MIR824 microRNA precursor family: a 429-nucleotide RNA sequence from Brassica carinata. NCBI's taxonomy places the organism under Eukaryota, Spermatophyta, Mesangiospermae, Brassiceae, Brassica.
[Rfam]
RNA sequence: CUCGAGUUGUCUCUCAUGUCUAGACCAUUUGUGAGAAGGGAUUUACUGUUUGCACCAUUCACCUCACCAAUCUCUAAAUCUGCAAUUAGUAUUAUGCUCAUUCAAGAAAAUUAGCAUCUAGAAAGUUGGUACAUAAAGUGCAUUUAUGACUUUUGCUGAUGCUGUACACAUAAUUUUUUUUUUUGUAGAAUCAGUUCAUGACAAUUUUCCAAAUCAUAUACAGUUUCGGACAUACAUUUUGCCUAAGAAAUGUCAAACUUCUGUCUGGAGUGUUAGAAGGUUUUCAUGAUAGCUCAGAAUUUUGUAGCUUGCCCUACUUAAUUAGCUACAUUAGUUCACUUGUUAAAAAGUUGGGGAGUGGGGGGGGGGGAGGUGCUGGGUUUCCCUUCUCAUCGAUGGUCUAGAUGUGCGAGGUGACUCUCAUAGUGU
Number, nucleotide and partner (000 for none) at each position: 001c428002u000003c426004g420005a419006g418007u417008u416009g415010u414011c413012u412013c411014u000015c409016a408017u407018g406019u405020c404021u403022a402023g401024a400025c399026c398027a397028u396029u395030u000031g393032u392033g391034a390035g389036a388037a387038g386039g385040g384041a383042u000043u000044u000045a000046c000047u000048g000049u000050u000051u000052g376053c375054a374055c373056c372057a000058u000059u000060c000061a000062c000063c000064u367065c000066a000067c000068c000069a000070a000071u000072c000073u000074c000075u000076a000077a000078a000079u000080c000081u000082g000083c000084a000085a000086u000087u000088a000089g000090u000091a000092u000093u000094a000095u000096g000097c000098u000099c000100a000101u000102u000103c000104a000105a000106g000107a000108a000109a000110a000111u000112u000113a000114g000115c000116a000117u000118c000119u000120a000121g000122a000123a000124a000125g000126u000127u000128g000129g000130u000131a000132c000133a000134u000135a000136a000137a000138g000139u000140g000141c000142a000143u000144u000145u000146a000147u000148g000149a000150c000151u000152u000153u000154u000155g000156c000157u000158g000159a000160u000161g000162c000163u000164g000165u000166a000167c000168a000169c000170a000171u000172a000173a000174u000175u000176u000177u000178u000179u000180u000181u000182u000183u000184u000185g000186u000187a000188g000189a000190a000191u000192c000193a000194g000195u000196u000197c000198a000199u000200g000201a000202c000203a000204a000205u000206u000207u000208u000209c000210c000211a000212a000213a000214u000215c000216a000217u000218a000219u000220a000221c000222a000223g000224u000225u000226u000227c000228g000229g000230a000231c000232a000233u000234a000235c000236a000237u000238u000239u000240u000241g000242c000243c000244u000245a000246a000247g000248a000249a000250a000251u000252g000253u000254c000255a000256a000257a000258c000259u000260u000261c000262u000263g000264u000265c000266u000267g000268g000269a000270g000271u000272g000273u000274u000275a000276g000277a000278a000279g000280g000281u000282u000283u000284u000285c000286a000287u000288g000289a000290u000291a000292g000293c000294u000295c000296a000297g000298a000299a000300u000301u000302u000303u000304g000305u000306a000307g000308c000309u000310u000311g000312c000313c000314c000315u000316a000317c000318u000319u000320a000321a000322u000323u000324a000325g000326c000327u000328a000329c000330a000331u000332u000333a000334g000335u000336u000337c000338a000339c000340u000341u000342g000343u000344u000345a000346a000347a000348a000349a000350g000351u000352u000353g000354g000355g000356g000357a000358g000359u000360g000361g000362g000363g000364g000365g000366g000367g064368g000369g000370g000371a000372g056373g055374u054375g053376c052377u000378g000379g000380g000381u000382u000383u041384c040385c039386c038387u037388u036389c035390u034391c033392a032393u031394c000395g029396a028397u027398g026399g025400u024401c023402u022403a021404g020405a019406u018407g017408u016409g015410c000411g013412a012413g011414g010415u009416g008417a007418c006419u005420c004421u000422c000423a000424u000425a000426g003427u000428g001429u000